The record is an 87-nucleotide sequence, which matches "GA-cis RNA" in Rfam. The sequence is in the family's curated seed alignment. It is annotated as a small RNA.
[Rfam]
RNA sequence: GAGAGAUUGUGCCUAUGCGUUGAAAACGCAUAUUGGAAUGGCACAAUCGAUUUGACGCCGAGUGUAAACGAGGGGUCGCUACCUUUA
Numbered sequence: 001g002a003g004a005g006a007u008u009g010u011g012c013c014u015a016u017g018c019g020u021u022g023a024a025a026a027c028g029c030a031u032a033u034u035g036g037a038a039u040g041g042c043a044c045a046a047u048c049g050a051u052u053u054g055a056c057g058c059c060g061a062g063u064g065u066a067a068a069c070g071a072g073g074g075g076u077c078g079c080u081a082c083c084u085u086u087a
Stems, first nucleotide, its partner, number of pairs: 008045006015031006054077003058073002062069002